[Rfam]
RNA sequence: GUGCCUUAAACUAAUGAGUAAGGAAAAUACUAAGCCCUGGUAAUGCUUGGCUUCCAAAAUAUAAUUUUACCGUAAUUUUUGAAAGGGUACAGGUCGUCCCCAAUGGGUUGUCCGCCUACUUUCGCGGGUGAUCCGGGUGAUAGCGAUCUGCCCU
Number, nucleotide and partner (000 for none) at each position: 001g000002u000003g000004c023005c022006u021007u020008a019009a000010a000011c000012u000013a000014a000015u000016g000017a000018g000019u008020a007021a006022g005023g004024a000025a000026a000027a000028u000029a000030c000031u000032a053033a052034g051035c050036c049037c000038u000039g046040g000041u000042a000043a000044u000045g000046c039047u000048u000049g036050g035051c034052u033053u032054c000055c000056a068057a067058a066059a000060u000061a000062u000063a000064a000065u000066u058067u057068u056069a000070c000071c000072g000073u000074a000075a000076u000077u000078u000079u000080u000081g000082a000083a000084a154085g153086g152087g151088u150089a000090c000091a149092g148093g147094u146095c145096g144097u143098c000099c000100c137101c136102a000103a000104u000105g134106g133107g132108u131109u130110g000111u128112c127113c126114g125115c124116c000117u000118a000119c000120u000121u000122u000123c000124g115125c114126g113127g112128g111129u000130g109131a108132u107133c106134c105135g000136g101137g100138u000139g000140a000141u000142a000143g097144c096145g095146a094147u093148c092149u091150g088151c087152c086153c085154u084